[Rfam]
RNA sequence: AAAUUAAUACCUUACAGGCUGUAGACAGUUGGUGCCAUAUGGCAUAAUGGACAAUAGUCCGCCACCCGAGGCUUGGGAACAGUACAAUCUACUUGUGCCUUCCAGCUUUCGGUGUGCCUGCCGAAAGCUUUUUAUUUGUGCCU
Numbered sequence: 001a002a003a004u005u006a007a008u009a010c011c012u013u014a015c016a017g018g019c020u021g022u023a024g025a026c027a028g029u030u031g032g033u034g035c036c037a038u039a040u041g042g043c044a045u046a047a048u049g050g051a052c053a054a055u056a057g058u059c060c061g062c063c064a065c066c067c068g069a070g071g072c073u074u075g076g077g078a079a080c081a082g083u084a085c086a087a088u089c090u091a092c093u094u095g096u097g098c099c100u101u102c103c104a105g106c107u108u109u110c111g112g113u114g115u116g117c118c119u120g121c122c123g124a125a126a127g128c129u130u131u132u133u134a135u136u137u138g139u140g141c142c143u
Stems, first nucleotide, its partner, number of pairs: 028066001030064004034043003105128010
The family of this 143-nucleotide RNA sequence from Thermincola carboxydiphila is "Ribosomal protein L10 leader". The family's consensus secondary structure was predicted with CMfinder. By type it is a cis-regulatory leader. This family is a putative r-protein leader autoregulatory structure found in B. subtilis and other low-GC Gram-positive bacteria. The source organism's lineage runs through Bacteria, Eubacteriales, Thermincolaceae, Thermincola and Thermincola carboxydiphila.